[Rfam]
RNA sequence: CGAGGUGACCGGGCCCCUCUGACGGACGUGGCGGCACGUUCGUGAUGUCGGCACUGUUC
Numbered sequence: 001c002g003a004g005g006u007g008a009c010c011g012g013g014c015c016c017c018u019c020u021g022a023c024g025g026a027c028g029u030g031g032c033g034g035c036a037c038g039u040u041c042g043u044g045a046u047g048u049c050g051g052c053a054c055u056g057u058u059c
Stems, first nucleotide, its partner, number of pairs: 006053002009051004022043008
RNA: terC RNA